[Rfam]
RNA sequence: UUCUUAUCAAGAGAGGUUGAGGGACUGGCCCUACGAAACCUCGGCAACCUUCAGAUCCAUUUAUCUGAAAAGGUGCCAAAUCCUGCUUUAGGAUCAUUACCUAAAGAAAGAUGAGAG
Number, nucleotide and partner (000 for none) at each position: 001u117002u116003c115004u114005u113006a112007u111008c110009a000010a000011g000012a000013g042014a041015g040016g039017u038018u000019g000020a000021g031022g030023g029024a000025c085026u000027g083028g082029c023030c022031c021032u000033a000034c000035g000036a000037a000038a017039c016040c015041u014042c013043g077044g076045c075046a074047a000048c073049c072050u069051u068052c067053a066054g065055a064056u000057c000058c000059a000060u000061u000062u000063a000064u055065c054066u053067g052068a051069a050070a000071a000072g049073g048074u046075g045076c044077c043078a000079a000080a000081u109082c028083c027084u000085g025086c106087u105088u104089u103090a102091g101092g000093a000094u000095c000096a000097u000098u000099a000100c000101c091102u090103a089104a088105a087106g086107a000108a000109a081110g008111a007112u006113g005114a004115g003116a002117g001
The record is a 117-nucleotide RNA sequence from Clostridium fungisolvens, which matches "SAM riboswitch aptamer (S box leader)" in Rfam. About the family: The SAM riboswitch is found upstream of a number of genes which code for proteins involved in methionine or cysteine biosynthesis in Gram-positive bacteria. The SAM riboswitch acts at the level of transcription termination control. The predicted structure consists of a complex stem-loop region followed by a single stem loop terminator region. Clan: SAM clan.